[Rfam]
RNA sequence: GCAAUAUCACAUGACUGGCGGAAUUGUGGCGUUUACCACAAGGGAGUGUGAAUAAUAAGAAUGCCGACCGCCUGGGCUUUAAGC
Numbered sequence: 001g002c003a004a005u006a007u008c009a010c011a012u013g014a015c016u017g018g019c020g021g022a023a024u025u026g027u028g029g030c031g032u033u034u035a036c037c038a039c040a041a042g043g044g045a046g047u048g049u050g051a052a053u054a055a056u057a058a059g060a061a062u063g064c065c066g067a068c069c070g071c072c073u074g075g076g077c078u079u080u081a082a083g084c
Stems, first nucleotide, its partner, number of pairs: 007051006015043002017072005026039004061079001063077003
Dot-bracket structure: ......((((((..(([[[[[....((((......))))..))..)))))).........(.(((..]]]]]..))).).....
The family of this 84-nucleotide sequence from Clostridium sp. 'deep sea' is "ZMP/ZTP riboswitch aptamer (pfl RNA motif)". Taxonomically the source falls in Clostridium (Bacteria, Bacillati, Eubacteriales, Clostridiaceae).